[Rfam]
Shown here is a 174-nucleotide sequence from Thermoclostridium caenicola, a member of the family "Lysine riboswitch aptamer". The base pairs follow the family's consensus structure, which is taken from published work. The source organism's lineage runs through Bacteria, Bacillati, Bacillota, Oscillospiraceae and Thermoclostridium.
RNA sequence: AGGAAUGAUAGAGGCGCGGUCCUUACGAGUAAUCUGUCCUUCAUGACCUGGCAAACGGGGCAGACGAAAAGAAUGACCGCCGAGGUUUCGGUUUCCACCAGGAGGAGCCGUUGCCGGGCUGGCACAGAAUAUGUGUCAGACUGUCACUUUUUAAAGUGGAGCGCUAUCAUGUCU
Dot-bracket structure: .....((((((....((((((.((........(((((((..................))))))).......)).))))))...(((..(((((((........)))))))..)))((.((((((((.....)))))))).)).((((((....))))))....)))))).....